The family of this 417-nucleotide RNA from Oecophyllibacter saccharovorans is "Bacterial RNase P class A".
It scores 315 bits against the family's covariance model.
Ribonuclease P (RNase P) is a ubiquitous endoribonuclease, found in archaea, bacteria and eukarya as well as chloroplasts and mitochondria.
It is annotated as a ribozyme.
Its Rfam clan is "RNaseP clan".

RNA sequence: CCAGACGGUCGGGCGGUCGCCGUGAUCAUGGAGCUCCGCAAGGCCUCCGUGACCAUGGAGGAAAGUCCGGGCUCCACAGGUAAACGGUGCCGGCUAACAGCCGGCGGGGGCGACCCCAGGGAAAGUGCCACAGAAACAAGACCGUCCGUCUGCCAGGCUGCCUGCAGCUCAGGCACGGAUAAGGGUGAAACGGUGCGGUAAGAGCGCACCGCAGGCCUGGCAACAGGCCUGGUCAUGGUAAACCCCACCGGGAGCAAGACCGAAUAGGAACGGCUGGUUCGCAAGAACCAAGGGUCACCUGCCCUGUCGUUCGGGUUGGUCGCGCGAGGCAGGUUGUAAGACCUGUCCCAGAGGAAUGAUCGCCCCCUCUCAGCUUUUGAGAGCGGACAGAACCCGGCUUACAGGCCGUCUGGUCCU
Numbered sequence: 001c002c003a004g005a006c007g008g009u010c011g012g013g014c015g016g017u018c019g020c021c022g023u024g025a026u027c028a029u030g031g032a033g034c035u036c037c038g039c040a041a042g043g044c045c046u047c048c049g050u051g052a053c054c055a056u057g058g059a060g061g062a063a064a065g066u067c068c069g070g071g072c073u074c075c076a077c078a079g080g081u082a083a084a085c086g087g088u089g090c091c092g093g094c095u096a097a098c099a100g101c102c103g104g105c106g107g108g109g110g111c112g113a114c115c116c117c118a119g120g121g122a123a124a125g126u127g128c129c130a131c132a133g134a135a136a137c138a139a140g141a142c143c144g145u146c147c148g149u150c151u152g153c154c155a156g157g158c159u160g161c162c163u164g165c166a167g168c169u170c171a172g173g174c175a176c177g178g179a180u181a182a183g184g185g186u187g188a189a190a191c192g193g194u195g196c197g198g199u200a201a202g203a204g205c206g207c208a209c210c211g212c213a214g215g216c217c218u219g220g221c222a223a224c225a226g227g228c229c230u231g232g233u234c235a236u237g238g239u240a241a242a243c244c245c246c247a248c249c250g251g252g253a254g255c256a257a258g259a260c261c262g263a264a265u266a267g268g269a270a271c272g273g274c275u276g277g278u279u280c281g282c283a284a285g286a287a288c289c290a291a292g293g294g295u296c297a298c299c300u301g302c303c304c305u306g307u308c309g310u311u312c313g314g315g316u317u318g319g320u321c322g323c324g325c326g327a328g329g330c331a332g333g334u335u336g337u338a339a340g341a342c343c344u345g346u347c348c349c350a351g352a353g354g355a356a357u358g359a360u361c362g363c364c365c366c367c368u369c370u371c372a373g374c375u376u377u378u379g380a381g382a383g384c385g386g387a388c389a390g391a392a393c394c395c396g397g398c399u400u401a402c403a404g405g406c407c408g409u410c411u412g413g414u415c416c417u
Stems, first nucleotide, its partner, number of pairs: 001413010011402001012364007020058005026052008063400003067397005072254004080300001085250005090104005105119001106117004120245002125243002127239003142184002144180006151173001192210006211234001212231008258321004268312006291305005328347008